[Rfam]
RNA sequence: ACCACUGAGCCACCUUCCCAGCCCUGGAACAUUAUUUUAAAAGGGUAACUUGGGGCUGGGAAGGUGGCUCAGUGGU
Number, nucleotide and partner (000 for none) at each position: 001a000002c075003c074004a073005c072006u071007g070008a069009g068010c067011c066012a065013c064014c063015u062016u061017c060018c059019c058020a057021g056022c055023c054024c053025u000026g000027g000028a000029a000030c000031a000032u000033u000034a000035u000036u000037u000038u000039a000040a000041a000042a000043g000044g000045g000046u000047a000048a000049c000050u000051u000052g000053g024054g023055g022056c021057u020058g019059g018060g017061a016062a015063g014064g013065u012066g011067g010068c009069u008070c007071a006072g005073u004074g003075g002076u000